[Rfam]
RNA sequence: GGGGCCGACCUGGUUUCGACGUUGGUGCGGAUUCGGGACAGGGCAUGUCGAGCACCAGUCAGCUCGUAAAUCCAUCUGGAAAAAAACCAAACGCCAACGAUCAAUCGUUCGCACUCGCCGCUUAAUACCGGUGAGCCUCGCAACAGUCGGCCCAUGGGCUGGGUCUGAGCCGCAAGGCAAGGACUGCGAGGUCACUUUCAUGGGCUGGGUCUGCACCGGGUCACUCGGUACAGGUCGAGAUUCAGUGACUGGCUGGACUGGUAGCGUGCUGCUGCGCGAUCAGGACGGUGAGAAUCAAAUCAGACAGCUAAACAUGUAGAUCUGCUCGUUGAUGGCUGACGGACGGGGGUUCAAUUCCCCCCGGCUCCACCA
Numbered sequence: 001g002g003g004g005c006c007g008a009c010c011u012g013g014u015u016u017c018g019a020c021g022u023u024g025g026u027g028c029g030g031a032u033u034c035g036g037g038a039c040a041g042g043g044c045a046u047g048u049c050g051a052g053c054a055c056c057a058g059u060c061a062g063c064u065c066g067u068a069a070a071u072c073c074a075u076c077u078g079g080a081a082a083a084a085a086a087c088c089a090a091a092c093g094c095c096a097a098c099g100a101u102c103a104a105u106c107g108u109u110c111g112c113a114c115u116c117g118c119c120g121c122u123u124a125a126u127a128c129c130g131g132u133g134a135g136c137c138u139c140g141c142a143a144c145a146g147u148c149g150g151c152c153c154a155u156g157g158g159c160u161g162g163g164u165c166u167g168a169g170c171c172g173c174a175a176g177g178c179a180a181g182g183a184c185u186g187c188g189a190g191g192u193c194a195c196u197u198u199c200a201u202g203g204g205c206u207g208g209g210u211c212u213g214c215a216c217c218g219g220g221u222c223a224c225u226c227g228g229u230a231c232a233g234g235u236c237g238a239g240a241u242u243c244a245g246u247g248a249c250u251g252g253c254u255g256g257a258c259u260g261g262u263a264g265c266g267u268g269c270u271g272c273u274g275c276g277c278g279a280u281c282a283g284g285a286c287g288g289u290g291a292g293a294a295u296c297a298a299a300u301c302a303g304a305c306a307g308c309u310a311a312a313c314a315u316g317u318a319g320a321u322c323u324g325c326u327c328g329u330u331g332a333u334g335g336c337u338g339a340c341g342g343a344c345g346g347g348g349g350u351u352c353a354a355u356u357c358c359c360c361c362c363g364g365c366u367c368c369a370c371c372a
Stems, first nucleotide, its partner, number of pairs: 001368007020341007034328004039324004044316005049066005055079004114135007136191006144161004150205007208236006215229002219250006252289004258283004264277003268308004274300001345361005

transfer-messenger RNA: a 372-nucleotide RNA from Aquabacterium commune. It is annotated as a non-coding RNA gene. Lineage of the source: Bacteria > Pseudomonadota > Betaproteobacteria > Burkholderiales > Aquabacterium. The base pairs follow the family's consensus structure, which is taken from published work. For this family Rfam cites "The tmRNA Website: invasion by an intron" (Williams, Nucleic Acids Res, 2002). The match comes from Rfam's covariance-model search (185 bits).